[Rfam]
RNA sequence: UGGCGCCCAAUGUGGGGCUUGGAUACUGGGGGACAAUGUGAGGGUCUGACGACGGAAGAAAAAGGGGUGCGCACCCGCUCAAAUAAUUCGGAGACAUCGCGGGAGCCUGCCGCGACCGAGCUGAAGAUAAGUUGGCCGUUCAAUCAUGGGGCAAGAAUUAAGUCAGCAUCAGAUUUAUGUGAUACAGUUAAGAGAAGCUCUACAGGCAAGAGGAGUAAAGGUUAAAACUGAGGAUUUAUUUCAUUUCUUUGAUUUUGUAAAGGACAUUUGUCCCU
Numbered sequence: 001u002g003g004c005g006c007c008c009a010a011u012g013u014g015g016g017g018c019u020u021g022g023a024u025a026c027u028g029g030g031g032g033a034c035a036a037u038g039u040g041a042g043g044g045u046c047u048g049a050c051g052a053c054g055g056a057a058g059a060a061a062a063a064g065g066g067g068u069g070c071g072c073a074c075c076c077g078c079u080c081a082a083a084u085a086a087u088u089c090g091g092a093g094a095c096a097u098c099g100c101g102g103g104a105g106c107c108u109g110c111c112g113c114g115a116c117c118g119a120g121c122u123g124a125a126g127a128u129a130a131g132u133u134g135g136c137c138g139u140u141c142a143a144u145c146a147u148g149g150g151g152c153a154a155g156a157a158u159u160a161a162g163u164c165a166g167c168a169u170c171a172g173a174u175u176u177a178u179g180u181g182a183u184a185c186a187g188u189u190a191a192g193a194g195a196a197g198c199u200c201u202a203c204a205g206g207c208a209a210g211a212g213g214a215g216u217a218a219a220g221g222u223u224a225a226a227a228c229u230g231a232g233g234a235u236u237u238a239u240u241u242c243a244u245u246u247c248u249u250u251g252a253u254u255u256u257g258u259a260a261a262g263g264a265c266a267u268u269u270g271u272c273c274c275u
Stems, first nucleotide, its partner, number of pairs: 006031003012026003037051003085128001087126001088124002095118001098114005135152002139150004159202002162198002210250006219237005260275001262273004
A member of the RNA family "Mason-Pfizer monkey virus packaging signal" from Nannospalax galili, 275 nucleotides long. From the family's description: This family represents a group of sequences that are related to the Mason-Pfizer monkey virus (MPMV) packaging signal. The packaging signal is located in the 5' UTR and is required for specific RNA encapsidation. A reference for the family is Mustafa et al. (2004), "Mutational analysis of the predicted secondary RNA structure of the Mason-Pfizer monkey virus packaging signal", Virus Res. Its family is annotated with viral genome packaging in the Gene Ontology. NCBI's taxonomy places the organism under Eukaryota, Tetrapoda, Amniota, Eutheria, Nannospalax.